[Rfam]
RNA: Plastid-psbA-1 3UTR RNA
Organism: Dodonaea viscosa
RNA sequence: UUGAGGCUCCAUCUACAAAUGGAUAAGAUUUUGAUCUUUGUGUAGACGAGUUUUUGAAAAUAACGGAGCAAUGCCGAUCCUCUUCCAAGAAAUUGGUAUUGCUCCGUUAUU
Numbered sequence: 001u002u003g004a005g006g007c008u009c010c011a012u013c014u015a016c017a018a019a020u021g022g023a024u025a026a027g028a029u030u031u032u033g034a035u036c037u038u039u040g041u042g043u044a045g046a047c048g049a050g051u052u053u054u055u056g057a058a059a060a061u062a063a064c065g066g067a068g069c070a071a072u073g074c075c076g077a078u079c080c081u082c083u084u085c086c087a088a089g090a091a092a093u094u095g096g097u098a099u100u101g102c103u104c105c106g107u108u109a110u111u
Stems, first nucleotide, its partner, number of pairs: 008023005062108013077094001